[Rfam]
Rfam assigns this 138-nucleotide RNA sequence from Periweissella cryptocerci to the family "Ribosomal protein L20 leader". The organism belongs to Periweissella, within Bacteria. This family is a putative r-protein leader autoregulatory structure found in B. subtilis and other low-GC Gram-positive bacteria. It is located in the 5' untranslated regions of mRNAs encoding initiation factor 3 followed by ribosomal proteins L35 and L20 (infC-rpmI-rplT). A Rho-independent transcription terminator structure that is probably involved in regulation is included at the 3' end. The family's RNA type in Rfam is cis-regulatory leader.

RNA sequence: AAAACAAAGCAGGAGCACCCGCUUCUCGCCUCAGUGAUAAAUACGUCGCUAGGCUAGAUAUUCUUAAAACCAUGAUGAAUGAUUUUAUGAGCGGGUUUACGUAUAGCAAUGUACGUGAACCCUCUUUUGUUUUCAAGC
Number, nucleotide and partner (000 for none) at each position: 001a000002a000003a000004a000005c000006a000007a000008a000009g000010c000011a026012g025013g024014a023015g022016c021017a000018c000019c000020c000021g016022c015023u014024u013025c012026u011027c000028g054029c053030c052031u000032c000033a000034g049035u048036g047037a046038u045039a000040a000041a000042u000043a000044c000045g038046u037047c036048g035049c034050u000051a000052g030053g029054c028055u000056a000057g000058a000059u000060a000061u000062u000063c000064u000065u000066a000067a000068a000069a000070c000071c000072a000073u000074g000075a000076u000077g000078a000079a000080u000081g000082a000083u000084u000085u000086u000087a000088u000089g000090a125091g124092c000093g122094g121095g120096u119097u118098u117099a116100c115101g114102u113103a112104u111105a110106g000107c000108a000109a000110u105111g104112u103113a102114c101115g100116u099117g098118a097119a096120c095121c094122c093123u000124c091125u090126u000127u000128u000129g000130u000131u000132u000133u000134c000135a000136a000137g000138c000